[Rfam]
RNA sequence: GGCUUCCUUACUUACCACAGUCUGUAUUCUUACACUGACUGUAUAGAAAGAGGAGGCAGAGUAAACCAACCCCAUAUAUACCUCAGCCCAGGCCCUGUGCCUGGUCUGUAUUGUGAAUCAGGAGACAAGG
Numbered sequence: 001g002g003c004u005u006c007c008u009u010a011c012u013u014a015c016c017a018c019a020g021u022c023u024g025u026a027u028u029c030u031u032a033c034a035c036u037g038a039c040u041g042u043a044u045a046g047a048a049a050g051a052g053g054a055g056g057c058a059g060a061g062u063a064a065a066c067c068a069a070c071c072c073c074a075u076a077u078a079u080a081c082c083u084c085a086g087c088c089c090a091g092g093c094c095c096u097g098u099g100c101c102u103g104g105u106c107u108g109u110a111u112u113g114u115g116a117a118u119c120a121g122g123a124g125a126c127a128a129g130g
Stems, first nucleotide, its partner, number of pairs: 002057007018041003024035002027032001070122002074118002084108003088104006
Shown here is a 130-nucleotide sequence from Macaca nemestrina, a member of the family "Small nucleolar RNA SNORA51". Taxonomically the source falls in Macaca (Eukaryota, Teleostomi, Sarcopterygii, Mammalia). Rfam describes the family as follows. ACA51 is a member of the H/ACA class of snoRNA that guide the sites of modification of uridines to pseudouridines. Rfam links the family to the GO terms RNA processing and nucleolus.